[Rfam]
RNA sequence: UUAAUAGGGCUGCUCUGAAGCUUUCUAACCUAAAUCUUGAGGAUAUGGUUUUUAAGCCGGGGUUAUGUGUGGAAACGCCAUGAUCUCCCGUGUUUGGAAAGGAGUUACGGAUGAGUAAGG
Number, nucleotide and partner (000 for none) at each position: 001u000002u000003a000004a000005u000006a000007g000008g000009g000010c000011u000012g105013c104014u103015c102016u101017g000018a000019a000020g057021c056022u055023u054024u000025c000026u000027a050028a049029c048030c047031u000032a000033a000034a044035u043036c042037u041038u000039g000040a000041g037042g036043a035044u034045a000046u000047g030048g029049u028050u027051u000052u000053u000054a023055a022056g021057c020058c000059g000060g086061g085062g084063u083064u082065a081066u080067g079068u000069g078070u077071g076072g000073a000074a000075a000076c071077g070078c069079c067080a066081u065082g064083a063084u062085c061086u060087c097088c096089c000090g000091u000092g000093u000094u000095u000096g088097g087098a000099a000100a000101g016102g015103a014104g013105u012106u000107a000108c000109g000110g000111a000112u000113g000114a000115g000116u000117a000118a000119g000120g000
Rfam assigns this 120-nucleotide RNA sequence to the family "Molybdenum/Tungsten riboswitch aptamer (Moco RNA motif)". On this family, see Regulski et al., Mol Microbiol 2008: "in molybdenum cofactor and tungsten cofactor metabolism".